[Rfam]
RNA sequence: CUCGCCCUAGGUGAAAAGGUUGCCAAGAGAGGCGGCCUUCUCAAGCAAGUCUUGAGAUAGCCUGGGUGUUUUAU
Numbered sequence: 001c002u003c004g005c006c007c008u009a010g011g012u013g014a015a016a017a018g019g020u021u022g023c024c025a026a027g028a029g030a031g032g033c034g035g036c037c038u039u040c041u042c043a044a045g046c047a048a049g050u051c052u053u054g055a056g057a058u059a060g061c062c063u064g065g066g067u068g069u070u071u072u073a074u
Stems, first nucleotide, its partner, number of pairs: 003068005010062003018037007039057005
The record is a 74-nucleotide sequence, which matches "DUF3800-IX RNA" in Rfam. Rfam describes the family as follows. Actinobacteria, Firmicutes (1 example), Nitrospirae, Proteobacteria, Verrucomicrobia (1 example). By type it is a small RNA.